[Rfam]
This 380-nucleotide RNA sequence from Solimonas marina belongs to the Rfam family "Bacterial RNase P class A". Pairs were carried over by alignment from the consensus structure, which is taken from published work. It is annotated as a ribozyme.
RNA sequence: GGAGUCGGCCGGACAAUCGCUGCCGCGCAUGCGGGGGAGGAAAGUCCGGGCUCCACAGGGCAAGGUGCCAGGUAAUGCCUGGGCGGCGUGAGCCGACGGAAAGUGCAACAGAGAACAGACCGCCGAAGUCUCGCAAGAGGCUGGUAAGGGUGAAACGGUGCGGUAAGAGCGCACCGCGGUUCCGGUAACGGAAACGGCACGGCAAACCCCACCUGGAGCAAGACCAAAUAGGGAAGGGUCCGCUGGCAACGGCGGAACGCGUGGCCCACGCGCCUUCCGGGUAGGUCGCUGCAGUGGCGCAGUGAUGCGUCGCGUAGAGGAAUGAUUGUCGGGGUGCGCAAGCGCCCGCACAGAACCCGGCUUAUAGGCCGACUCCCACC
Numbered sequence: 001g002g003a004g005u006c007g008g009c010c011g012g013a014c015a016a017u018c019g020c021u022g023c024c025g026c027g028c029a030u031g032c033g034g035g036g037g038a039g040g041a042a043a044g045u046c047c048g049g050g051c052u053c054c055a056c057a058g059g060g061c062a063a064g065g066u067g068c069c070a071g072g073u074a075a076u077g078c079c080u081g082g083g084c085g086g087c088g089u090g091a092g093c094c095g096a097c098g099g100a101a102a103g104u105g106c107a108a109c110a111g112a113g114a115a116c117a118g119a120c121c122g123c124c125g126a127a128g129u130c131u132c133g134c135a136a137g138a139g140g141c142u143g144g145u146a147a148g149g150g151u152g153a154a155a156c157g158g159u160g161c162g163g164u165a166a167g168a169g170c171g172c173a174c175c176g177c178g179g180u181u182c183c184g185g186u187a188a189c190g191g192a193a194a195c196g197g198c199a200c201g202g203c204a205a206a207c208c209c210c211a212c213c214u215g216g217a218g219c220a221a222g223a224c225c226a227a228a229u230a231g232g233g234a235a236g237g238g239u240c241c242g243c244u245g246g247c248a249a250c251g252g253c254g255g256a257a258c259g260c261g262u263g264g265c266c267c268a269c270g271c272g273c274c275u276u277c278c279g280g281g282u283a284g285g286u287c288g289c290u291g292c293a294g295u296g297g298c299g300c301a302g303u304g305a306u307g308c309g310u311c312g313c314g315u316a317g318a319g320g321a322a323u324g325a326u327u328g329u330c331g332g333g334g335u336g337c338g339c340a341a342g343c344g345c346c347c348g349c350a351c352a353g354a355a356c357c358c359g360g361c362u363u364a365u366a367g368g369c370c371g372a373c374u375c376c377c378a379c380c
Stems, first nucleotide, its partner, number of pairs: 001376010011365001012330007020037002023034004042363003046360005051218004058267004063214005068082005083097001084095004098209002103207002105203002120149002122145003127142006157175006176198001177196002180193005222287004232278006258272005294313008